[Rfam]
RNA sequence: AAGGCAUAAACUGAAAAGCCAUAAAAGAGUAGGUA
Number, nucleotide and partner (000 for none) at each position: 001a000002a000003g020004g019005c018006a000007u000008a000009a000010a034011c033012u032013g000014a000015a000016a000017a000018g005019c004020c003021a000022u000023a000024a000025a000026a000027g000028a000029g000030u000031a000032g012033g011034u010035a000
A member of the RNA family "DUF805b RNA" from Pedobacter cryoconitis, 35 nucleotides long. It scores 41 bits against the family's covariance model. Rfam classes the family as a cis-regulatory element. The base pairs follow the family's consensus structure, which is taken from published work. Clan: DUF805 clan.